[Rfam]
RNA sequence: GAUCGCCAAUUACCAGUGGAUUUAGCGUUGGAUUCGUCACAACUCGCACGGCACCCAGAUUAGCAUCGUAUAAACCACCGAAAAACAUCGCUUUAGCGGCGACAAGUAACGCGCCUAAACCUAAAAAAAUGAGAUGAUUACCUAAAAUCAACCCUAACUUUUUCGGGUCAUCCCA
Numbered sequence: 001g002a003u004c005g006c007c008a009a010u011u012a013c014c015a016g017u018g019g020a021u022u023u024a025g026c027g028u029u030g031g032a033u034u035c036g037u038c039a040c041a042a043c044u045c046g047c048a049c050g051g052c053a054c055c056c057a058g059a060u061u062a063g064c065a066u067c068g069u070a071u072a073a074a075c076c077a078c079c080g081a082a083a084a085a086c087a088u089c090g091c092u093u094u095a096g097c098g099g100c101g102a103c104a105a106g107u108a109a110c111g112c113g114c115c116u117a118a119a120c121c122u123a124a125a126a127a128a129a130u131g132a133g134a135u136g137a138u139u140a141c142c143u144a145a146a147a148u149c150a151a152c153c154c155u156a157a158c159u160u161u162u163u164c165g166g167g168u169c170a171u172c173c174c175a
Base pairs, nucleotide, nucleotide: 133172134171135170136169137168138167141166142165144163145162
Rfam assigns this 175-nucleotide sequence from Gloeocapsa sp. PCC 7428 to the family "Antisense RNA which regulates isiA expression". The literature on the family includes a 2006 paper in Proc Natl Acad Sci U S A by Duhring et al., "An internal antisense RNA regulates expression of the photosynthesis gene isiA". The organism belongs to Gloeocapsa, within Bacteria. The match comes from Rfam's covariance-model search (111 bits). The base pairs follow the family's consensus structure, which was predicted with PFOLD.